Rfam assigns this 72-nucleotide sequence from Roseovarius faecimaris to the family "Singlet oxygen resistance RNA X". The base pairs follow the family's consensus structure. It scores 69 bits against the family's covariance model. About the family: SorX (RSs2461)like SorY is a singlet oxygen induced sRNA that counteracts oxidative stress by targeting mRNA for a transporter in Rhodobacter. It also has an impact on resistance against organic hydroperoxides. It targets SD sequence of potA mRNA via an aSD sequence. The aSD sequence and some neighbouring nucleotides are identical to the one of SorY (targets takP mRNA). The source organism's lineage runs through Bacteria, Pseudomonadota, Alphaproteobacteria, Roseobacteraceae and Roseovarius.
[Rfam]
RNA sequence: UACCCGUGCAUAUGCGGGCAAUCAUAUGCACCUCCCUGUUGGACUGACCCCGGUAUCUACCGGGGUCUUUUU
Numbered sequence: 001u002a003c004c005c006g007u008g009c010a011u012a013u014g015c016g017g018g019c020a021a022u023c024a025u026a027u028g029c030a031c032c033u034c035c036c037u038g039u040u041g042g043a044c045u046g047a048c049c050c051c052g053g054u055a056u057c058u059a060c061c062g063g064g065g066u067c068u069u070u071u072u
Stems, first nucleotide, its partner, number of pairs: 008029007047066008